[Rfam]
RNA sequence: UGACCACUCCUUUCUGGAGUUAUAGCCAUACGGACAGCUGGGUCAAAUGCCGA
Numbered sequence: 001u002g003a004c005c006a007c008u009c010c011u012u013u014c015u016g017g018a019g020u021u022a023u024a025g026c027c028a029u030a031c032g033g034a035c036a037g038c039u040g041g042g043u044c045a046a047a048u049g050c051c052g053a
Stems, first nucleotide, its partner, number of pairs: 001045005006020005
RNA: Streptococcus sRNA SpF59 (ldcC RNA)